Record summary
The family of this 150-nucleotide RNA from Effusibacillus dendaii is "SAM riboswitch aptamer (S box leader)". It scores 81 bits against the family's covariance model.

[Rfam]
RNA sequence: CUCUUAUCACGAGCAGGCUGAGGGACUGGCCCGAUGAAGCCCGGCAACCGGACAUAUUUUGGCGACGGAUCGGCAGCAACUGGAAUUCCGUUAGACAGGGUGUCCACGGUGCUAACUCCUGCAGAAUCGUUUGGUUCUGAGAGAUGAGAG
Numbered sequence: 001c002u003c004u005u006a007u008c009a010c011g012a013g014c015a016g017g018c019u020g021a022g023g024g025a026c027u028g029g030c031c032c033g034a035u036g037a038a039g040c041c042c043g044g045c046a047a048c049c050g051g052a053c054a055u056a057u058u059u060u061g062g063c064g065a066c067g068g069a070u071c072g073g074c075a076g077c078a079a080c081u082g083g084a085a086u087u088c089c090g091u092u093a094g095a096c097a098g099g100g101u102g103u104c105c106a107c108g109g110u111g112c113u114a115a116c117u118c119c120u121g122c123a124g125a126a127u128c129g130u131u132u133g134g135u136u137c138u139g140a141g142a143g144a145u146g147a148g149a150g
Stems, first nucleotide, its partner, number of pairs: 001150008013042001016041003022032003026121001028119002043113004048109002050105006117142001122139006